The family of this 261-nucleotide part of an RNA from Microbacterium lemovicicum is "Bacterial large subunit ribosomal RNA".
[Rfam]
RNA sequence: GGAAGUUUGAGAGGAUCUGACCCUAGUACGAGAGGACCGGGUUGGACGAACCUCUGGUGUGUCAGUUGUUCCGCCAGGAGCACCGCUGAUUAGCUACGUUCGGGAUGGAUAACCGCUGAAAGCAUCUAAGCGGGAAGCCGGCCUCAAGAUGAGACUUCCAUACCAUUUAUGGUGAGAGGCUCCCAGCCAGACUACUGGGUUGAUAGGCCGGAUGUGGAAGCGUGGCAACACGUGAAGCUGACCGGUACUAAUAAGCCGAUG
Numbered sequence: 001g002g003a004a005g006u007u008u009g010a011g012a013g014g015a016u017c018u019g020a021c022c023c024u025a026g027u028a029c030g031a032g033a034g035g036a037c038c039g040g041g042u043u044g045g046a047c048g049a050a051c052c053u054c055u056g057g058u059g060u061g062u063c064a065g066u067u068g069u070u071c072c073g074c075c076a077g078g079a080g081c082a083c084c085g086c087u088g089a090u091u092a093g094c095u096a097c098g099u100u101c102g103g104g105a106u107g108g109a110u111a112a113c114c115g116c117u118g119a120a121a122g123c124a125u126c127u128a129a130g131c132g133g134g135a136a137g138c139c140g141g142c143c144u145c146a147a148g149a150u151g152a153g154a155c156u157u158c159c160a161u162a163c164c165a166u167u168u169a170u171g172g173u174g175a176g177a178g179g180c181u182c183c184c185a186g187c188c189a190g191a192c193u194a195c196u197g198g199g200u201u202g203a204u205a206g207g208c209c210g211g212a213u214g215u216g217g218a219a220g221c222g223u224g225g226c227a228a229c230a231c232g233u234g235a236a237g238c239u240g241a242c243c244g245g246u247a248c249u250a251a252u253a254a255g256c257c258g259a260u261g
Stems, first nucleotide, its partner, number of pairs: 001159008011145004017045007047102005055096003062089005067082006106140003113133005162173003178257004182199005204250003207246005214238001220233005
Pairs were carried over by alignment from the consensus structure, which is taken from published work. Gene Ontology terms of the family: structural constituent of ribosome and ribosome.